[Rfam]
Nucleotides: 217
Stems, first nucleotide, its partner, number of pairs: 002216003006212003010208002013205010024194006
Number, partner (000 for none) and nucleotide at each position: 001000a002216u003215u004214u005000u006212g007211g008210u009000c010208c011207u012000u013205u014204a015203a016202g017201u018200a019199u020198u021197u022196a023000u024194u025193u026192g027191g028190u029189a030000u031000c032000g033000c034000u035000u036000u037000g038000g039000u040000c041000c042000c043000u044000u045000a046000a047000c048000u049000a050000a051000a052000a053000a054000a055000a056000a057000g058000a059000u060000u061000g062000u063000u064000u065000g066000a067000g068000u069000a070000c071000u072000u073000u074000a075000a076000u077000u078000u079000a080000a081000u082000u083000u084000u085000c086000g087000u088000u089000a090000c091000a092000u093000u094000u095000u096000u097000u098000g099000g100000u101000c102000c103000a104000u105000u106000c107000c108000g109000u110000u111000a112000g113000g114000u115000u116000u117000a118000a119000u120000a121000a122000a123000a124000a125000a126000u127000g128000u129000u130000a131000a132000g133000u134000g135000u136000g137000a138000u139000a140000c141000a142000c143000g144000u145000g146000u147000c148000g149000u150000u151000u152000u153000g154000g155000c156000a157000u158000u159000g160000g161000c162000u163000c164000u165000g166000g167000a168000a169000a170000c171000a172000u173000u174000a175000a176000g177000g178000g179000a180000c181000c182000a183000a184000a185000g186000u187000g188000a189029u190028a191027c192026c193025a194024a195000a196022u197021a198020a199019a200018u201017a202016c203015u204014u205013a206000c207011g208010g209000g210008a211007c212006c213000a214004a215003a216002a217000g
The family of this 217-nucleotide sequence from Medicago truncatula is "MIR2655 microRNA precursor family". Rfam links the family to the GO terms miRNA-mediated post-transcriptional gene silencing and RISC complex. NCBI's taxonomy places the organism under Eukaryota, Streptophytina, Mesangiospermae, Fabaceae, Medicago.